Small nucleolar RNA R30/Z108: a 98-nucleotide RNA sequence from Setaria viridis. Rfam classes the family as a C/D-box small nucleolar RNA. The family has 6 seed sequences and 626 matches in Rfam 15.1. The organism belongs to Setaria, within Eukaryota. The family's consensus secondary structure was predicted with PFOLD. Gene Ontology terms of the family: nucleolus and RNA processing. About the family: snoR30 is a C/D box small nucleolar RNA which acts as a methylation guide for 18S ribosomal RNA in plants.
[Rfam]
RNA sequence: GGUUGUUGCGAUGAGGAUAAUAAGCUCCCUCUUCUGAAAGAAUUGAGGACUCUCGCUGGCAGAAUCGAACCAAUAACCUUGUUGCCACCACUGAGUAA
Numbered sequence: 001g002g003u004u005g006u007u008g009c010g011a012u013g014a015g016g017a018u019a020a021u022a023a024g025c026u027c028c029c030u031c032u033u034c035u036g037a038a039a040g041a042a043u044u045g046a047g048g049a050c051u052c053u054c055g056c057u058g059g060c061a062g063a064a065u066c067g068a069a070c071c072a073a074u075a076a077c078c079u080u081g082u083u084g085c086c087a088c089c090a091c092u093g094a095g096u097a098a
Stems, first nucleotide, its partner, number of pairs: 006098004